[Rfam]
RNA sequence: UGACUCGUAAGAGUCAACCUAGCCAACUGACGUUGUUUGUGAUUCAUUUCACUAAAACAAUGACGCCAACCGACAUUAUUACGGUUGGCUUUUUUUUA
Number, nucleotide and partner (000 for none) at each position: 001u016002g015003a014004c013005u012006c011007g000008u000009a000010a000011g006012a005013g004014u003015c002016a001017a000018c000019c000020u000021a000022g000023c000024c000025a000026a000027c000028u000029g000030a000031c000032g000033u063034u062035g061036u060037u000038u000039g052040u051041g050042a049043u000044u000045c000046a000047u000048u000049u042050c041051a040052c039053u000054a000055a000056a000057a000058c000059a000060a036061u035062g034063a033064c000065g000066c088067c087068a086069a085070c084071c083072g082073a000074c000075a000076u000077u000078a000079u000080u000081a000082c072083g071084g070085u069086u068087g067088g066089c000090u000091u000092u000093u000094u000095u000096u000097u000098a000
RNA: Qrr RNA
Organism: Photobacterium jeanii